[Rfam]
RNA sequence: UUCUUAUCUUGAGAGAUGGAGGGAAAGGCCCAAUGAAGUCUCAGCAACCAGCCGGAAAAUGGACUUCUGGUCAGGUGCUAAGUCCUACAGAUUGCUUAUCAGUCUGACAGAUAAGGA
Numbered sequence: 001u002u003c004u005u006a007u008c009u010u011g012a013g014a015g016a017u018g019g020a021g022g023g024a025a026a027g028g029c030c031c032a033a034u035g036a037a038g039u040c041u042c043a044g045c046a047a048c049c050a051g052c053c054g055g056a057a058a059a060u061g062g063a064c065u066u067c068u069g070g071u072c073a074g075g076u077g078c079u080a081a082g083u084c085c086u087a088c089a090g091a092u093u094g095c096u097u098a099u100c101a102g103u104c105u106g107a108c109a110g111a112u113a114a115g116g117a
Stems, first nucleotide, its partner, number of pairs: 001117008013042005021031003026086003043079004048075002050071001052069001083109001088106006
Rfam assigns this 117-nucleotide sequence from Texcoconibacillus texcoconensis to the family "SAM riboswitch aptamer (S box leader)".
Gene Ontology term of the family: regulation of gene expression.
The SAM riboswitch is found upstream of a number of genes which code for proteins involved in methionine or cysteine biosynthesis in Gram-positive bacteria.